[Rfam]
RNA sequence: AAGAGAACACAGCUUUUUAAGAAUUUUUUCUAACAGGAUUUCUGAUUUUGGUCAGAAAACCCCC
Numbered sequence: 001a002a003g004a005g006a007a008c009a010c011a012g013c014u015u016u017u018u019a020a021g022a023a024u025u026u027u028u029u030c031u032a033a034c035a036g037g038a039u040u041u042c043u044g045a046u047u048u049u050g051g052u053c054a055g056a057a058a059a060c061c062c063c064c
Base pairs, nucleotide, nucleotide: 036061037060039058040057041056042055043054044053045052046051
RNA: U7 small nuclear RNA
Organism: Mus musculus